[Rfam]
RNA sequence: UCUCCAAUUUUCAAAUAUGGUUAUCUCGGUGAAGAAGUGUUUUUCAGCACUGCCGAGGGACAUGGAAGUGAGUUACCUUAAUUCGAGAUAUUGGAUUGAGAAGUGGCUUAUACAGGAAAGUGAUUUCUGGUAUGGAGACAGAAACUGUCAACAAAAUCAUGUGGCGUACCAUUAUAAAGAAGCCAAUAGCAGAAUCCUUGUGGCUGGCGAAUAAUAGACGCUUGCGGUGCAAGAAUAACCCGAUGGGUGUAUGCGGUGUGAGAGACCACUCACUAUAUUCGGGAAAUCUCAUAAAGCCGGUUUGCCUUGAAUCCGGGAAUUGAAAACCGGAGUAUAACACAAGAAAUUCGUUAAAGUAGCGGUAUGGCAUUACGAUCGAUAAAGAAAUCAAUGCAUGGUUGAUGUUUUCUUCUGAAAGAACCGUGAAAUUUACAGGUAUCAAUCCCGUGUGUGCUUGUCAGCGGUAAGAAGCCAAGGGUCGCACCCAAACGCUCAGACUUAUCGUCACACUGGCAGAAUAUGGCUGUAUUUAUAAUGGAUAAGACGAAGGUCUAACCAUAUUUGAAACAAUAA
Numbered sequence: 001u002c003u004c005c006a007a008u009u010u011u012c013a014a015a016u017a018u019g020g021u022u023a024u025c026u027c028g029g030u031g032a033a034g035a036a037g038u039g040u041u042u043u044u045c046a047g048c049a050c051u052g053c054c055g056a057g058g059g060a061c062a063u064g065g066a067a068g069u070g071a072g073u074u075a076c077c078u079u080a081a082u083u084c085g086a087g088a089u090a091u092u093g094g095a096u097u098g099a100g101a102a103g104u105g106g107c108u109u110a111u112a113c114a115g116g117a118a119a120g121u122g123a124u125u126u127c128u129g130g131u132a133u134g135g136a137g138a139c140a141g142a143a144a145c146u147g148u149c150a151a152c153a154a155a156a157u158c159a160u161g162u163g164g165c166g167u168a169c170c171a172u173u174a175u176a177a178a179g180a181a182g183c184c185a186a187u188a189g190c191a192g193a194a195u196c197c198u199u200g201u202g203g204c205u206g207g208c209g210a211a212u213a214a215u216a217g218a219c220g221c222u223u224g225c226g227g228u229g230c231a232a233g234a235a236u237a238a239c240c241c242g243a244u245g246g247g248u249g250u251a252u253g254c255g256g257u258g259u260g261a262g263a264g265a266c267c268a269c270u271c272a273c274u275a276u277a278u279u280c281g282g283g284a285a286a287u288c289u290c291a292u293a294a295a296g297c298c299g300g301u302u303u304g305c306c307u308u309g310a311a312u313c314c315g316g317g318a319a320u321u322g323a324a325a326a327c328c329g330g331a332g333u334a335u336a337a338c339a340c341a342a343g344a345a346a347u348u349c350g351u352u353a354a355a356g357u358a359g360c361g362g363u364a365u366g367g368c369a370u371u372a373c374g375a376u377c378g379a380u381a382a383a384g385a386a387a388u389c390a391a392u393g394c395a396u397g398g399u400u401g402a403u404g405u406u407u408u409c410u411u412c413u414g415a416a417a418g419a420a421c422c423g424u425g426a427a428a429u430u431u432a433c434a435g436g437u438a439u440c441a442a443u444c445c446c447g448u449g450u451g452u453g454c455u456u457g458u459c460a461g462c463g464g465u466a467a468g469a470a471g472c473c474a475a476g477g478g479u480c481g482c483a484c485c486c487a488a489a490c491g492c493u494c495a496g497a498c499u500u501a502u503c504g505u506c507a508c509a510c511u512g513g514c515a516g517a518a519u520a521u522g523g524c525u526g527u528a529u530u531u532a533u534a535a536u537g538g539a540u541a542a543g544a545c546g547a548a549g550g551u552c553u554a555a556c557c558a559u560a561u562u563u564g565a566a567a568c569a570a571u572a573a
Stems, first nucleotide, its partner, number of pairs: 008569001010567002014563002020557001022555001025057005036051005060162005071108006078099009109134005115128005137149005170538001173535001177531001182525001184523001188521001192349004197343006203301006221233004239283005248277004255267002259291004303369004312331005353429001359424005411497004435446002450509003461506001464503001467500002471493001476486003542553004

Shown here is a 573-nucleotide RNA sequence, a member of the family "ROOL RNA". Rfam's curators put it in the seed alignment. Firmicutes, Fusobacteria (1 example), Tenericutes (1 example). By type it is a small RNA.